Notes: Shown here is a 73-nucleotide RNA from Leptomonas pyrrhocoris, a member of the family "Trypanosomatid snoRNA TB10cs1H3". It scores 62 bits against the family's covariance model. Rfam 15.1 lists 36 matches to the family in 16 species. The literature on the family includes a 2005 paper in RNA by Liang et al., "A genome-wide analysis of C/D and H/ACA-like small nucleolar RNAs in Trypanosoma brucei reveals a trypanosome-specific pattern of rRNA modification". Its family is annotated with RNA processing and nucleolus in the Gene Ontology.

RNA sequence: UUGUGCGGCUGGAACGUGGCAGGCUGCGGAGGGCAAUACUCAUCCCCCACGCGGUUCAACACAAUGUCCUAGA
Numbered sequence: 001u002u003g004u005g006c007g008g009c010u011g012g013a014a015c016g017u018g019g020c021a022g023g024c025u026g027c028g029g030a031g032g033g034c035a036a037u038a039c040u041c042a043u044c045c046c047c048c049a050c051g052c053g054g055u056u057c058a059a060c061a062c063a064a065u066g067u068c069c070u071a072g073a
Base pairs, nucleotide, nucleotide: 011069012068013067017063018062023055024054025053026052027051029048031046032045033044
Taxonomically the source falls in Leptomonas (Eukaryota, Kinetoplastea, Metakinetoplastina, Leishmaniinae).